Record summary:
This 114-nucleotide RNA from Clupea harengus belongs to the Rfam family "U5 spliceosomal RNA". The family has 180 seed sequences and 28,527 matches in Rfam 15.1. The organism belongs to Clupea, within Eukaryota. By type it is a spliceosomal small nuclear RNA.

Nucleotides: 114
Base pairs, nucleotide, nucleotide: 003073004072005071007066008065010063011062014059015058016057017056026052027051028050029049030048031047032046033045094113095112097110098109
Number, partner (000 for none) and nucleotide at each position: 001000a002000u003073u004072c005071a006000u007066g008065g009000a010063u011062c012000c013000g014059u015058u016057c017056a018000u019000a020000u021000c022000a023000u024000a025000u026052a027051a028050a029049u030048c031047u032046u033045u034000c035000g036000c037000c038000u039000u040000u041000u042000a043000c044000u045033a046032a047031a048030g049029a050028u051027u052026u053000a054000u055000g056017u057016g058015g059014a060000g061000a062011g063010g064000a065008c066007c067000a068000c069000u070000g071005u072004g073003a074000g075000u076000u077000a078000a079000u080000a081000g082000u083000a084000a085000u086000g087000u088000u089000u090000u091000g092000a093000u094113a095112c096000a097110c098109c099000a100000c101000u102000g103000c104000a105000u106000g107000g108000c109098g110097g111000g112095g113094u114000c